[Rfam]
RNA: Histone 3' UTR stem-loop
RNA sequence: CAAACGGCUCUUUUAAGAGCCACCACACGUUCGUAAUAAGAGCUGU
Numbered sequence: 001c002a003a004a005c006g007g008c009u010c011u012u013u014u015a016a017g018a019g020c021c022a023c024c025a026c027a028c029g030u031u032c033g034u035a036a037u038a039a040g041a042g043c044u045g046u
Stems, first nucleotide, its partner, number of pairs: 006021006